Rfam assigns this 132-nucleotide RNA sequence from Gulo gulo to the family "Small nucleolar RNA SNORA61". Pairs were carried over by alignment from the consensus structure, which was predicted with PFOLD. A search with the family's covariance model found it, with a score of 118 bits. Rfam's curators write: ACA61 is a member of the H/ACA class of snoRNA that guide the sites of modification of uridines to pseudouridines.

RNA sequence: ACCCUCUGGUUCCCUUUCCCAUCAGAUCUGAGCACUGGUCUUGGUGGUUGUUAAAGGAGGAAAAGGUACAAUGAAGCUGGCCUCCCAGUAUCUAUAGUCUGGUAUACAGCUUGUGGGCUGCUUCAAACAAGG
Numbered sequence: 001a002c003c004c005u006c007u008g009g010u011u012c013c014c015u016u017u018c019c020c021a022u023c024a025g026a027u028c029u030g031a032g033c034a035c036u037g038g039u040c041u042u043g044g045u046g047g048u049u050g051u052u053a054a055a056g057g058a059g060g061a062a063a064a065g066g067u068a069c070a071a072u073g074a075a076g077c078u079g080g081c082c083u084c085c086c087a088g089u090a091u092c093u094a095u096a097g098u099c100u101g102g103u104a105u106a107c108a109g110c111u112u113g114u115g116g117g118c119u120g121c122u123u124c125a126a127a128c129a130a131g132g
Stems, first nucleotide, its partner, number of pairs: 003060005019047005025040004077120001079119005095109001